Rfam assigns this 217-nucleotide RNA sequence from Iocasia frigidifontis to the family "Group II catalytic intron D1-D4-3". A search with the family's covariance model found it, with a score of 33 bits.

[Rfam]
RNA sequence: UUUACCGUGAGGUAAAAUCUGAAGAAUCUGCGACUGUAACUAGUCCGGAACAAUAUGUAAACCAGAGGUGGCAUCUAAUUGUGACGACUCGCCCUAAAAACAAGGAAGUUCAACGCCUGCGUGGGGGAGACAGAGUGUCGAUAGGGCUCUACAACGAGGAUGCCCAAGCAGGGCAAUUAGGUGUGAUUAGGGUCGGAAUGGUUGUAAGGUUCCUGUG
Numbered sequence: 001u002u003u004a005c006c007g008u009g010a011g012g013u014a015a016a017a018u019c020u021g022a023a024g025a026a027u028c029u030g031c032g033a034c035u036g037u038a039a040c041u042a043g044u045c046c047g048g049a050a051c052a053a054u055a056u057g058u059a060a061a062c063c064a065g066a067g068g069u070g071g072c073a074u075c076u077a078a079u080u081g082u083g084a085c086g087a088c089u090c091g092c093c094c095u096a097a098a099a100a101c102a103a104g105g106a107a108g109u110u111c112a113a114c115g116c117c118u119g120c121g122u123g124g125g126g127g128a129g130a131c132a133g134a135g136u137g138u139c140g141a142u143a144g145g146g147c148u149c150u151a152c153a154a155c156g157a158g159g160a161u162g163c164c165c166a167a168g169c170a171g172g173g174c175a176a177u178u179a180g181g182u183g184u185g186a187u188u189a190g191g192g193u194c195g196g197a198a199u200g201g202u203u204g205u206a207a208g209g210u211u212c213c214u215g216u217g
Stems, first nucleotide, its partner, number of pairs: 001016006028215001030213001033210002039203001041201001043199001044197005062192002066188001071184003075180007083164001085162001088158004
Rfam links the family to the GO term Group II intron splicing.
The source organism's lineage runs through Bacteria, Bacillota, Clostridia, Halanaerobiaceae and Iocasia.
The base pairs follow the family's consensus structure.
Rfam's curators write: Group II introns are found in rRNA, tRNA and mRNA of organelles in fungi, plants and protists, and also in mRNA in bacteria.